[Rfam]
RNA: U4 spliceosomal RNA
Organism: Mycena kentingensis
Nucleotides: 136
Stems, first nucleotide, its partner, number of pairs: 021054005027049003035044003085108002088106003093101003121136006
Number, partner (000 for none) and nucleotide at each position: 001000u002000c003000u004000c005000u006000u007000g008000u009000g010000c011000u012000c013000g014000g015000g016000c017000a018000c019000g020000u021054a022053c023052c024051a025050u026000c027049g028048g029047a030000a031000g032000u033000g034000a035044g036043g037042u038000u039000u040000c041000u042037a043036c044035c045000g046000a047029u048028c049027c050025g051024u052023g053022g054021u055000c056000u057000u058000u059000u060000g061000c062000u063000a064000g065000u066000u067000g068000c069000a070000a071000a072000u073000u074000a075000a076000a077000u078000c079000c080000g081000a082000a083000c084000c085108a086107u087000u088106c089105u090104c091000u092000u093101c094100a095099c096000u097000u098000u099095g100094u101093g102000u103000u104090g105089a106088g107086a108085u109000a110000a111000u112000u113000u114000u115000u116000g117000g118000a119000a120000g121136a122135a123134u124133c125132c126131c127000u128000u129000g130000u131126g132125g133124g134123a135122u136121u